[Rfam]
RNA sequence: GUAAGAUAAAGGCAAACCUGUCGAAAGGCAGGGACGCAAAGCCACGGGUCUAAAGCAAUUGCUAGGGCAGCCGGGCUACCAUG
Numbered sequence: 001g002u003a004a005g006a007u008a009a010a011g012g013c014a015a016a017c018c019u020g021u022c023g024a025a026a027g028g029c030a031g032g033g034a035c036g037c038a039a040a041g042c043c044a045c046g047g048g049u050c051u052a053a054a055g056c057a058a059u060u061g062c063u064a065g066g067g068c069a070g071c072c073g074g075g076c077u078a079c080c081a082u083g
Base pairs, nucleotide, nucleotide: 012037013036017032018031019030020029021028022027040077041076042075043074045073046072047071048068049067050066055062056061
Dot-bracket structure: ...........((...((((((....))))))...))..((((.((((((....((....))...)))..)))))))......
Record summary:
Shown here is an 83-nucleotide RNA sequence from Anaerocolumna jejuensis, a member of the family "c-di-GMP-I riboswitch aptamer". Its family is annotated with cyclic-di-GMP binding in the Gene Ontology. Its Rfam clan is "c-di-GMP_I riboswitch clan". It scores 85 bits against the family's covariance model. Pairs were carried over by alignment from the consensus structure, which is taken from published work.